RNA: Glycine riboswitch aptamer
RNA sequence: AAAAACAACUCUGGAAAGUCGGGAAAAGCCCGCGCCGAAGGUGUAAGUGGAUGUUGUCACGAGUCUCUCAGGCAUCAGACAGAGGGGCGUUC
Numbered sequence: 001a002a003a004a005a006c007a008a009c010u011c012u013g014g015a016a017a018g019u020c021g022g023g024a025a026a027a028g029c030c031c032g033c034g035c036c037g038a039a040g041g042u043g044u045a046a047g048u049g050g051a052u053g054u055u056g057u058c059a060c061g062a063g064u065c066u067c068u069c070a071g072g073c074a075u076c077a078g079a080c081a082g083a084g085g086g087g088c089g090u091u092c
Stems, first nucleotide, its partner, number of pairs: 006087001009084005020032004034073003037069002041067001043065001047060004